RNA sequence: GGCGGCAUAACUCAGCUGGUAGAGUACCCGGUUCAUACCCGGUAUGUCAUCUGUUCGAAUCAGAUUGCCGCUA
Numbered sequence: 001g002g003c004g005g006c007a008u009a010a011c012u013c014a015g016c017u018g019g020u021a022g023a024g025u026a027c028c029c030g031g032u033u034c035a036u037a038c039c040c041g042g043u044a045u046g047u048c049a050u051c052u053g054u055u056c057g058a059a060u061c062a063g064a065u066u067g068c069c070g071c072u073a
Base pairs, nucleotide, nucleotide: 001072002071003070004069005068006067007066010025011024012023013022028042029041030040031039049065050064051063052062053061
tRNA: a 73-nucleotide RNA from Firmicutes bacterium CAG:137. Its family is annotated with triplet codon-amino acid adaptor activity in the Gene Ontology. NCBI's taxonomy places the organism under Bacteria, Bacillati, Bacillota.